[Rfam]
RNA sequence: GCCGCCCGAGGUGGUAAAUUUCGCAGCGACCACACGCCCUUGAGGUAAAAAAGAGAUGCAGGAGGAUGCUGCGCCUGCCGGGCGGC
Numbered sequence: 001g002c003c004g005c006c007c008g009a010g011g012u013g014g015u016a017a018a019u020u021u022c023g024c025a026g027c028g029a030c031c032a033c034a035c036g037c038c039c040u041u042g043a044g045g046u047a048a049a050a051a052a053g054a055g056a057u058g059c060a061g062g063a064g065g066a067u068g069c070u071g072c073g074c075c076u077g078c079c080g081g082g083c084g085g086c
Stems, first nucleotide, its partner, number of pairs: 001086008011033005023072005035053001036046003058078005

skipping-rope RNA: an 86-nucleotide sequence. Rfam's curators put it in the seed alignment.